[Rfam]
RNA: Guanidine-II riboswitch aptamer (mini-ykkC)
RNA sequence: AAAUGAGGACGACCUCAUCCCUCGCGCUUUUCUCUGGGACGACCCAG
Number, nucleotide and partner (000 for none) at each position: 001a000002a000003a018004u017005g016006a015007g014008g013009a000010c000011g000012a000013c008014c007015u006016c005017a004018u003019c000020c000021c000022u000023c000024g000025c000026g000027c000028u000029u000030u000031u000032c000033u000034c047035u046036g045037g044038g043039a000040c000041g000042a000043c038044c037045c036046a035047g034